The family of this 283-nucleotide RNA sequence from Pogona vitticeps is "Small Cajal body specific RNA 6".
Rfam links the family to the GO terms nucleolus and RNA processing.
The match comes from Rfam's covariance-model search (75 bits).

[Rfam]
RNA sequence: GGUCAGUGAUGACAAGAGAAAAGACUGAUUGCACUUGUGAACUGUACACACCCAUUGACUUCUUCAGCUCCCAGCAGUUUUUCUUCUUCUCUUUCCCUCAUCUGAAGUCCAGUAAUGCUGUGAGGUGUUUGAGGACUGCUGACAUUAUGUGGAUAAAGUCAGUGUGUGUUGCCUUCAGUGAAAGGGGCUUGUCACUGACUGUCAUCCAACAAAGCUAGUCAAGGAGCUGUCAUUUCUGGGGUGUGCCUUAUUGUGCAUGAUCUUUAGUUUUCAAGCUGAGACC
Numbered sequence: 001g002g003u004c005a006g007u008g009a010u011g012a013c014a015a016g017a018g019a020a021a022a023g024a025c026u027g028a029u030u031g032c033a034c035u036u037g038u039g040a041a042c043u044g045u046a047c048a049c050a051c052c053c054a055u056u057g058a059c060u061u062c063u064u065c066a067g068c069u070c071c072c073a074g075c076a077g078u079u080u081u082u083c084u085u086c087u088u089c090u091c092u093u094u095c096c097c098u099c100a101u102c103u104g105a106a107g108u109c110c111a112g113u114a115a116u117g118c119u120g121u122g123a124g125g126u127g128u129u130u131g132a133g134g135a136c137u138g139c140u141g142a143c144a145u146u147a148u149g150u151g152g153a154u155a156a157a158g159u160c161a162g163u164g165u166g167u168g169u170u171g172c173c174u175u176c177a178g179u180g181a182a183a184g185g186g187g188c189u190u191g192u193c194a195c196u197g198a199c200u201g202u203c204a205u206c207c208a209a210c211a212a213a214g215c216u217a218g219u220c221a222a223g224g225a226g227c228u229g230u231c232a233u234u235u236c237u238g239g240g241g242u243g244u245g246c247c248u249u250a251u252u253g254u255g256c257a258u259g260a261u262c263u264u265u266a267g268u269u270u271u272c273a274a275g276c277u278g279a280g281a282c283c
Stems, first nucleotide, its partner, number of pairs: 001283004037264001039262002042259001049243005054237001068226004072141007099127005105121001106119001149207001152206003156202001165194002171188003174184002